[Rfam]
RNA sequence: AUGAGCAUGAUGAAAAAAAUCAUUCGGAUUCCCAAUGAUUUUCUCUUUAUGAUAGUUUUUAUUUGAAGAGGAAGGUGAUCUUACACUCCAUUUCUGACUCAU
Dot-bracket structure: (((((............................................................................................)))))